[Rfam]
Rfam assigns this 117-nucleotide RNA sequence from Aurantimonas sp. 22II-16-19i to the family "ALIL pseudoknot". Pairs were carried over by alignment from the consensus structure, which is taken from published work. It scores 114 bits against the family's covariance model.

RNA sequence: GGCGUAUUUUGCCCAGGCGGAGCUCGACUGCCGGUUCAAGCCAUGAAGAGGUUCAUCGACGACCAUCGCGAUGCCUACGGGGUCGAGCCGAUCUGCCGGGUUCUGCCGAUCGCCCCG
Number, nucleotide and partner (000 for none) at each position: 001g000002g000003c000004g000005u000006a000007u000008u000009u000010u000011g000012c000013c000014c000015a000016g032017g031018c030019g029020g028021a000022g000023c000024u000025c000026g000027a000028c020029u019030g018031c017032c016033g000034g000035u000036u000037c000038a000039a000040g000041c000042c000043a000044u000045g000046a000047a000048g000049a000050g000051g000052u000053u000054c000055a000056u000057c000058g000059a000060c000061g000062a000063c000064c000065a000066u000067c000068g000069c000070g000071a000072u000073g000074c000075c000076u000077a000078c117079g116080g115081g114082g113083u000084c000085g000086a000087g000088c000089c112090g111091a000092u109093c108094u000095g106096c105097c000098g103099g000100g000101u000102u000103c098104u000105g096106c095107c000108g093109a092110u000111c090112g089113c082114c081115c080116c079117g078